[Rfam]
RNA sequence: UUUAAUAAUAAAGGUCGAGAACCUUAACAAAUUAACA
Numbered sequence: 001u002u003u004a005a006u007a008a009u010a011a012a013g014g015u016c017g018a019g020a021a022c023c024u025u026a027a028c029a030a031a032u033u034a035a036c037a
Stems, first nucleotide, its partner, number of pairs: 001037001002035005011025005
RNA: S16-Flavobacteria ribosomal protein leader